[Rfam]
RNA sequence: UACCACAAUCUUGCUCCCGUUAACCAAGACCUAUGGGAGGAUAAAUUACGUCUUAAUAUCCAGUAGUGAGGGAUUACUGGAAAUAAGUUUCGCA
Number, nucleotide and partner (000 for none) at each position: 001u000002a000003c000004c000005a000006c000007a000008a000009u000010c000011u000012u000013g000014c039015u038016c037017c036018c035019g034020u033021u000022a000023a000024c000025c000026a000027a053028g052029a051030c050031c000032u000033a020034u019035g018036g017037g016038a015039g014040g000041a000042u000043a000044a000045a000046u000047u000048a000049c000050g030051u029052c028053u027054u000055a000056a000057u000058a000059u081060c080061c079062a078063g077064u076065a075066g000067u000068g000069a000070g000071g000072g000073a000074u000075u065076a064077c063078u062079g061080g060081a059082a000083a000084u000085a000086a000087g000088u000089u000090u000091c000092g000093c000094a000

Rfam assigns this 94-nucleotide RNA sequence to the family "PhotoRC-II RNA". By type it is a cis-regulatory element. The sequence is in the family's curated seed alignment.